[Rfam]
RNA sequence: CCCAGGGCGUUGCCCUGGGCUACGGUAGUUCGCCCUUUCAGGGCU
Numbered sequence: 001c002c003c004a005g006g007g008c009g010u011u012g013c014c015c016u017g018g019g020c021u022a023c024g025g026u027a028g029u030u031c032g033c034c035c036u037u038u039c040a041g042g043g044c045u
Stems, first nucleotide, its partner, number of pairs: 001019008032044005
RNA: Acido-Lenti-1 RNA
Organism: Desulfonatronum sp. SC1